A member of the RNA family "TPP riboswitch aptamer (THI element)" from an Olavius algarvensis Gamma 1 endosymbiont, 114 nucleotides long.

RNA sequence: GAGACCUGCUGGGGGUGCCCGCCGGGACCUUCGAGGCCUUUGAGCGGCGCUGAGAGAAACCCUUGGUACCUGAUCCGGGUAAUGCCGGCGCAGGGAAGGCGGGCAGAGGCGCUU
Numbered sequence: 001g002a003g004a005c006c007u008g009c010u011g012g013g014g015g016u017g018c019c020c021g022c023c024g025g026g027a028c029c030u031u032c033g034a035g036g037c038c039u040u041u042g043a044g045c046g047g048c049g050c051u052g053a054g055a056g057a058a059a060c061c062c063u064u065g066g067u068a069c070c071u072g073a074u075c076c077g078g079g080u081a082a083u084g085c086c087g088g089c090g091c092a093g094g095g096a097a098g099g100c101g102g103g104c105a106g107a108g109g110c111g112c113u114u
Stems, first nucleotide, its partner, number of pairs: 006102005011063004016057001017050002019047004069094004075088004
The source organism's lineage runs through Bacteria, Pseudomonadati, Pseudomonadota and Gammaproteobacteria.